[Rfam]
RNA: tRNA
Nucleotides: 100
Base pairs, nucleotide, nucleotide: 001099002098003097004096005095006094007093010025011024012023013022027070028069029068030067076092077091078090079089080088
Number, partner (000 for none) and nucleotide at each position: 001099g002098c003097u004096u005095g006094g007093u008000u009000g010025g011024c012023u013022c014000a015000g016000u017000u018000g019000g020000u021000a022013g023012a024011g025010c026000g027070u028069u029068g030067g031000u032000c033000u034000c035000a036000u037000a038000g039000u040000c041000a042000a043000u044000a045000u046000g047000a048000c049000g050000a051000u052000u053000c054000u055000a056000a057000g058000a059000a060000u061000c062000g063000c064000a065000a066000u067030c068029c069028a070027a071000a072000g073000g074000u075000c076092g077091u078090g079089a080088g081000u082000u083000c084000g085000a086000g087000c088080c089079u090078c091077a092076c093007a094006c095005c096004g097003a098002g099001c100000a